[Rfam]
RNA sequence: CACUACACUGAGUGGCCAGAUUAUUAUAAUCUCCGAACACAUAAUGAUCUGGCCACUCAGUGUAUAU
Numbered sequence: 001c002a003c004u005a006c007a008c009u010g011a012g013u014g015g016c017c018a019g020a021u022u023a024u025u026a027u028a029a030u031c032u033c034c035g036a037a038c039a040c041a042u043a044a045u046g047a048u049c050u051g052g053c054c055a056c057u058c059a060g061u062g063u064a065u066a067u
Base pairs, nucleotide, nucleotide: 004064005063006062007061008060009059010058011057012056013055014054015053016052017051019049020048021047022046023045024044025043026042027041

Record summary: mir-9256 microRNA precursor family: a 67-nucleotide RNA from Pipistrellus kuhlii. Its family is annotated with RISC complex and miRNA-mediated post-transcriptional gene silencing in the Gene Ontology. The family's consensus secondary structure was predicted with RNAalifold. The organism belongs to Pipistrellus, within Eukaryota. The match comes from Rfam's covariance-model search (82 bits).